Bacterial RNase P class B: a 412-nucleotide sequence from Hydrogenibacillus schlegelii. Rfam classes the family as a ribozyme. It scores 220 bits against the family's covariance model.

RNA sequence: GGGCACGCGUAGCCGCUGCGCCGGACGGAUUUGGCCGCCGGCGUAGAGGAAAGUCCAGGCUCGCCCGAGCUGCGAGGCUCGGAGUGUUCGCGCCCGGGGCAACCCGGGGCGGCGGACGGCCUGCCUCCGGGCAGGUGCCGGGUCCGUCGACGGCGGCGAACGGAACUCCCGGAGUUCCUAUUAGCCAUAACGUGCCACAGAGACGAGCUCUUCCGGCGACGGAAGAGGUGGAACGCGGUAAACCCCGCGAGCGAGAAACCCAAAUGAUGGUAGGGGAGCCCUCCGAAGAGAAAUGAAUCGGAGGAGGGAUCGCCUCCGGCUUCGCCGGCGGCGAUAGAAAGAUGGCUACGCCUCCUGUACGAGGGCCGGGCACCCGUUGGCAGUACGGGAGGACAGAACCUGGCUUACAGUG
Numbered sequence: 001g002g003g004c005a006c007g008c009g010u011a012g013c014c015g016c017u018g019c020g021c022c023g024g025a026c027g028g029a030u031u032u033g034g035c036c037g038c039c040g041g042c043g044u045a046g047a048g049g050a051a052a053g054u055c056c057a058g059g060c061u062c063g064c065c066c067g068a069g070c071u072g073c074g075a076g077g078c079u080c081g082g083a084g085u086g087u088u089c090g091c092g093c094c095c096g097g098g099g100c101a102a103c104c105c106g107g108g109g110c111g112g113c114g115g116a117c118g119g120c121c122u123g124c125c126u127c128c129g130g131g132c133a134g135g136u137g138c139c140g141g142g143u144c145c146g147u148c149g150a151c152g153g154c155g156g157c158g159a160a161c162g163g164a165a166c167u168c169c170c171g172g173a174g175u176u177c178c179u180a181u182u183a184g185c186c187a188u189a190a191c192g193u194g195c196c197a198c199a200g201a202g203a204c205g206a207g208c209u210c211u212u213c214c215g216g217c218g219a220c221g222g223a224a225g226a227g228g229u230g231g232a233a234c235g236c237g238g239u240a241a242a243c244c245c246c247g248c249g250a251g252c253g254a255g256a257a258a259c260c261c262a263a264a265u266g267a268u269g270g271u272a273g274g275g276g277a278g279c280c281c282u283c284c285g286a287a288g289a290g291a292a293a294u295g296a297a298u299c300g301g302a303g304g305a306g307g308g309a310u311c312g313c314c315u316c317c318g319g320c321u322u323c324g325c326c327g328g329c330g331g332c333g334a335u336a337g338a339a340a341g342a343u344g345g346c347u348a349c350g351c352c353u354c355c356u357g358u359a360c361g362a363g364g365g366c367c368g369g370g371c372a373c374c375c376g377u378u379g380g381c382a383g384u385a386c387g388g389g390a391g392g393a394c395a396g397a398a399c400c401u402g403g404c405u406u407a408c409a410g411u412g
Stems, first nucleotide, its partner, number of pairs: 004412003007408001008350007016046009051406003055403005060255005065082006088250005093108006109151001110149008152245002155186003163177006192243002194239003208227008259275003279308006309335006352391009